[Rfam]
RNA sequence: UUUCCAAUAACGCUUAGUCUCCAAAUUGGAGAGCGGGGGAACCAAAUGAGGACUUGUGCCGGGGUAUGCGAGGCACGCAAAGUCGCGUUGAAUUCUUCUAGGGGUGAAUUUCCGCUGCGGCGCGCUUAACUAGUGCCGACAGCCGAAUAGGGCGACUCUCUCGCCCGAAUCCGACAGCUAACCUCGCAAGCGUCAUAAGAGAGAUCAA
Number, nucleotide and partner (000 for none) at each position: 001u000002u000003u000004c000005c000006a000007a000008u000009a000010a000011c192012g191013c190014u189015u000016a000017g000018u032019c031020u030021c000022c000023a000024a000025a000026u000027u000028g000029g000030a020031g019032a018033g187034c186035g185036g184037g183038g182039g000040a000041a000042c000043c101044a000045a000046a000047u000048g000049a000050g000051g000052a000053c000054u000055u000056g000057u000058g000059c000060c000061g000062g000063g000064g000065u000066a000067u000068g000069c000070g000071a000072g000073g000074c000075a000076c000077g000078c000079a000080a000081a000082g000083u000084c000085g000086c000087g000088u000089u000090g000091a000092a000093u000094u000095c000096u000097u000098c000099u000100a000101g043102g172103g171104g170105u000106g000107a000108a000109u000110u147111u146112c145113c000114g000115c000116u000117g000118c000119g000120g000121c000122g000123c000124g000125c000126u000127u000128a000129a000130c000131u000132a000133g000134u000135g000136c000137c000138g000139a000140c000141a000142g000143c000144c000145g112146a111147a110148u000149a000150g166151g165152g164153c163154g000155a000156c000157u000158c000159u000160c000161u000162c000163g153164c152165c151166c150167g000168a000169a000170u104171c103172c102173g000174a000175c000176a000177g000178c000179u000180a000181a000182c038183c037184u036185c035186g034187c033188a000189a014190g013191c012192g011193u000194c000195a000196u000197a000198a000199g000200a000201g000202a000203g000204a000205u000206c000207a000208a000